The family of this 58-nucleotide sequence from Diaminobutyricimonas aerilata is "msiK RNA".
Nucleotides: 058
Stems, first nucleotide, its partner, number of pairs: 010051002013049004028045006
Number, partner (000 for none) and nucleotide at each position: 001000a002000u003000c004000g005000a006000u007000c008000a009000u010051c011050c012000a013049u014048u015047c016046a017000c018000a019000a020000c021000g022000g023000a024000u025000c026000g027000u028045c029044c030043g031042g032041c033040a034000c035000g036000u037000a038000c039000c040033u041032g042031c043030c044029g045028g046016u047015g048014a049013a050011g051010g052000a053000g054000a055000a056000c057000a058000c
Taxonomically the source falls in Diaminobutyricimonas (Bacteria, Bacillati, Actinomycetota, Actinomycetes). Pairs were carried over by alignment from the consensus structure, which is taken from published work. The match comes from Rfam's covariance-model search (64 bits).